[Rfam]
RNA sequence: GGUGCGGGCCGGGCCCCUCUGGCGAUGGGAACAUCGUGAUGUCGGACCGCAUCG
Numbered sequence: 001g002g003u004g005c006g007g008g009c010c011g012g013g014c015c016c017c018u019c020u021g022g023c024g025a026u027g028g029g030a031a032c033a034u035c036g037u038g039a040u041g042u043c044g045g046a047c048c049g050c051a052u053c054g
Base pairs, nucleotide, nucleotide: 006048007047009045010044011043012042022037023036024035025034026033027032